[Rfam]
RNA sequence: UAACGUUACCGGGCCCCUCUGGCGAGCGCGUUUGGCGCGCUCGUGAUGUCGGAACGAGAUG
Numbered sequence: 001u002a003a004c005g006u007u008a009c010c011g012g013g014c015c016c017c018u019c020u021g022g023c024g025a026g027c028g029c030g031u032u033u034g035g036c037g038c039g040c041u042c043g044u045g046a047u048g049u050c051g052g053a054a055c056g057a058g059a060u061g
Stems, first nucleotide, its partner, number of pairs: 007054001009052004022044008
RNA: terC RNA